[Rfam]
RNA sequence: GGGCCAAGUGAUGUGAAUGGUUUUCUAUUAUCACAACGGUCAUCUGAGACAUUUUAUUGGUCAAUAUUGAUGUUUCACCAAUAAUCUGAUGGUC
Numbered sequence: 001g002g003g004c005c006a007a008g009u010g011a012u013g014u015g016a017a018u019g020g021u022u023u024u025c026u027a028u029u030a031u032c033a034c035a036a037c038g039g040u041c042a043u044c045u046g047a048g049a050c051a052u053u054u055u056a057u058u059g060g061u062c063a064a065u066a067u068u069g070a071u072g073u074u075u076c077a078c079c080a081a082u083a084a085u086c087u088g089a090u091g092g093u094c
Stems, first nucleotide, its partner, number of pairs: 001094002004091001050059002
This 94-nucleotide RNA sequence from Asparagus officinalis belongs to the Rfam family "Small nucleolar RNA Z161/Z228". Rfam 15.1 lists 630 matches to the family in 214 species. On this family, see Chen et al., Nucleic Acids Res 2003: "The high diversity of snoRNAs in plants: identification and comparative study of 120 snoRNA genes from Oryza sativa". Its Rfam clan is "SNORD35 clan". The organism belongs to Asparagus, within Eukaryota. The match comes from Rfam's covariance-model search (54 bits). It is annotated as a C/D-box small nucleolar RNA.